[Rfam]
RNA: Small nucleolar RNA SNORD27
RNA sequence: ACUCCAUGAUGAACACAAAAUGACAAGCAUAUGGCUGAACUUUCAAGUGAUGUCAUCUUACUACUGAGAAGU
Numbered sequence: 001a002c003u004c005c006a007u008g009a010u011g012a013a014c015a016c017a018a019a020a021u022g023a024c025a026a027g028c029a030u031a032u033g034g035c036u037g038a039a040c041u042u043u044c045a046a047g048u049g050a051u052g053u054c055a056u057c058u059u060a061c062u063a064c065u066g067a068g069a070a071g072u
Base pairs, nucleotide, nucleotide: 001072002071003069004068